[Rfam]
RNA: U4 spliceosomal RNA
Organism: Tricholaema leucomelas
RNA sequence: CGCUUUGCGCAGCGGCAGUAUUGUAGCCAAUGAGGUUAAUCUGAGGUGUGAUUAUUGCUAAUUGAAAACUUUUCCCAAUACCCUGCCAUGACGAUGUGAAAUAUCGUCAGCAUUGGCAAUUUUUGAGAGCCUCCCUGAAGG
Numbered sequence: 001c002g003c004u005u006u007g008c009g010c011a012g013c014g015g016c017a018g019u020a021u022u023g024u025a026g027c028c029a030a031u032g033a034g035g036u037u038a039a040u041c042u043g044a045g046g047u048g049u050g051a052u053u054a055u056u057g058c059u060a061a062u063u064g065a066a067a068a069c070u071u072u073u074c075c076c077a078a079u080a081c082c083c084u085g086c087c088a089u090g091a092c093g094a095u096g097u098g099a100a101a102u103a104u105c106g107u108c109a110g111c112a113u114u115g116g117c118a119a120u121u122u123u124u125g126a127g128a129g130c131c132u133c134c135c136u137g138a139a140g141g
Base pairs, nucleotide, nucleotide: 020052021051022050023049024048026047027046028045034042035041085117086116087115088113089112090111093108094107095106096105130141131140132139